RNA sequence: AAUUGGGGACGACCUCAAUUUUUCGAUAUCGGCCGGGACGACCCG
Dot-bracket structure: ((((((((....)))))))).............((((....))))
Source information:
This 45-nucleotide RNA sequence from Nitrosomonas halophila belongs to the Rfam family "Guanidine-II riboswitch aptamer (mini-ykkC)". Its family is annotated with regulation of gene expression in the Gene Ontology. A search with the family's covariance model found it, with a score of 39 bits. The source organism's lineage runs through Bacteria, Pseudomonadota, Betaproteobacteria, Nitrosomonadaceae and Nitrosomonas. The base pairs follow the family's consensus structure, which is taken from published work. Rfam describes the family as follows. Simpler in structure and has fewer highly conserved nucleotide positions than the ykkC-yxkD leader. Despite this each of its two stem-loop structures directly bind free guanidine. Therefore, mini-ykkC RNA motif represents a distinct class of guanidine-sensing RNAs. The family has 72 seed sequences and 1,589 matches in Rfam 15.1.